[Rfam]
RNA sequence: GCAGAUCCGUUGGGGUGCCCCGCCUAGGGGCUGAGAGGCCGCGUGCCAACCCAUCGAACCUGAUCCGGCUCACACCGGCGUAGGAAACGGAGCGCGAAAGACA
Numbered sequence: 001g002c003a004g005a006u007c008c009g010u011u012g013g014g015g016u017g018c019c020c021c022g023c024c025u026a027g028g029g030g031c032u033g034a035g036a037g038g039c040c041g042c043g044u045g046c047c048a049a050c051c052c053a054u055c056g057a058a059c060c061u062g063a064u065c066c067g068g069c070u071c072a073c074a075c076c077g078g079c080g081u082a083g084g085a086a087a088c089g090g091a092g093c094g095c096g097a098a099a100g101a102c103a
Stems, first nucleotide, its partner, number of pairs: 006091005011053004017031005038047001040045001059084004065078004
This 103-nucleotide RNA from Maritimibacter sp. 55A14 belongs to the Rfam family "TPP riboswitch aptamer (THI element)". Lineage of the source: Bacteria > Pseudomonadati > Pseudomonadota > Roseobacteraceae > Maritimibacter. A search with the family's covariance model found it, with a score of 76 bits. The base pairs follow the family's consensus structure, which is taken from published work.